Nucleotides: 187
Stems, first nucleotide, its partner, number of pairs: 002185002005183007013174003017171003029152004033147006054126003058122004065116001068115006079104002085099004
Number, partner (000 for none) and nucleotide at each position: 001000c002185a003184c004000a005183g006182g007181c008180u009179a010178c011177a012000a013174u014173g015172u016000u017171c018170g019169u020000a021000u022000u023000u024000a025000a026000a027000u028000a029152a030151g031150u032149u033147u034146a035145a036144a037143c038142c039000u040000c041000u042000a043000a044000c045000a046000a047000a048000u049000g050000a051000a052000u053000a054126g055125g056124g057000a058122g059121u060120u061119u062000u063000a064000u065116a066000u067000c068115g069114g070113a071112a072111c073110u074000g075000a076000a077000a078000u079104g080103u081000c082000g083000g084000g085099c086098c087097g088096c089000c090000u091000u092000g093000a094000g095000a096088g097087c098086g099085g100000a101000a102000g103080a104079c105000a106000g107000g108000a109000a110073a111072g112071u113070u114069u115068c116065u117000g118000c119061a120060a121059a122058c123000a124056c125055c126054c127000a128000c129000u130000u131000g132000g133000u134000g135000a136000a137000g138000u139000g140000g141000u142038g143037g144036u145035u146034u147033a148000a149032a150031a151030c152029u153000u154000u155000u156000u157000a158000u159000u160000u161000a162000u163000a164000a165000a166000a167000a168000u169019a170018c171017g172015g173014c174013a175000c176000u177011u178010g179009u180008g181007g182006c183005u184003g185002u186000a187000a